[Rfam]
RNA sequence: CUACCGUCGCUGAGAGGCGAAGGGAUGAAGUUGCAGAAGUCAGCCGCGGGCAUAGUAGGUUCAGUCGACCGAACUGAAGGCC
Numbered sequence: 001c002u003a004c005c006g007u008c009g010c011u012g013a014g015a016g017g018c019g020a021a022g023g024g025a026u027g028a029a030g031u032u033g034c035a036g037a038a039g040u041c042a043g044c045c046g047c048g049g050g051c052a053u054a055g056u057a058g059g060u061u062c063a064g065u066c067g068a069c070c071g072a073a074c075u076g077a078a079g080g081c082c
Base pairs, nucleotide, nucleotide: 001027004023005022007020008019009018010017011016041046049082050081051080058075059074060073061072062071
Group II catalytic intron D1-D4-1: an 82-nucleotide sequence. The literature on the family includes a 2001 paper in Trends Genet by Bonen and Vogel, "The ins and outs of group II introns". The family has 237 seed sequences and 2,508 matches in Rfam 15.1. Rfam's curators put it in the seed alignment.